[Rfam]
RNA sequence: CCGAUACGGUAAGACCCCUCCUCCUCCCUGGGUCUUACGGUCAAGGCGACUUCCCCUCUCCUUCUCCCUGGGGAAGUCGCCAAAAAAUACCGCGGGGCCCCUCCUCCUCCCUGGGCCACGCAGUUCAG
Numbered sequence: 001c002c003g004a005u006a007c008g009g010u011a012a013g014a015c016c017c018c019u020c021c022u023c024c025u026c027c028c029u030g031g032g033u034c035u036u037a038c039g040g041u042c043a044a045g046g047c048g049a050c051u052u053c054c055c056c057u058c059u060c061c062u063u064c065u066c067c068c069u070g071g072g073g074a075a076g077u078c079g080c081c082a083a084a085a086a087a088u089a090c091c092g093c094g095g096g097g098c099c100c101c102u103c104c105u106c107c108u109c110c111c112u113g114g115g116c117c118a119c120g121c122a123g124u125u126c127a128g
Base pairs, nucleotide, nucleotide: 007040009038011036012035013034014033015032016031017030047079048078049077050076051075052074053073054072055071056070090123092121093120094119096117097116098115099114100113

Alphaproteobacterial ar14: a 128-nucleotide RNA from Paracoccus limosus. The match comes from Rfam's covariance-model search (60 bits). Rfam describes the family as follows. Smr14C2 was renamed NfeR1 (Nodule Formation Efficiency RNA) highly expressed in salt stress and during the symbiotic interaction on legume roots.